Rfam assigns this 58-nucleotide sequence from Hespellia stercorisuis to the family "pemK RNA". Pairs were carried over by alignment from the consensus structure, which is taken from published work. The match comes from Rfam's covariance-model search (64 bits). Lineage of the source: Bacteria > Bacillati > Clostridia > Lachnospirales > Hespellia stercorisuis.
[Rfam]
RNA sequence: AUAAUGAUACUUCUCUACGGAGCUGGCGAAGAACUCGGCAGAGGUUUGAUUCCUAUGA
Numbered sequence: 001a002u003a004a005u006g007a008u009a010c011u012u013c014u015c016u017a018c019g020g021a022g023c024u025g026g027c028g029a030a031g032a033a034c035u036c037g038g039c040a041g042a043g044g045u046u047u048g049a050u051u052c053c054u055a056u057g058a
Base pairs, nucleotide, nucleotide: 012055013022014021015020023041024040025039027037028036029035042054043053044052